[Rfam]
Nucleotides: 081
Base pairs, nucleotide, nucleotide: 005077006076007075008074009073010072013069014068015067016066017065018064020062021061022060023058025057026056029054030053031052032051034049
Number, partner (000 for none) and nucleotide at each position: 001000c002000g003000a004000a005077u006076g007075u008074g009073g010072g011000u012000c013069u014068u015067g016066g017065c018064a019000c020062u021061g022060g023058a024000a025057g026056a027000a028000u029054u030053c031052a032051c033000a034049g035000a036000u037000a038000u039000a040000u041000g042000u043000a044000a045000a046000a047000a048000a049034u050000c051032g052031u053030g054029g055000g056026u057025c058023u059000c060022u061021c062020g063000g064018u065017g066016c067015c068014a069013a070000a071000g072010u073009c074008u075007a076006c077005a078000a079000c080000g081000c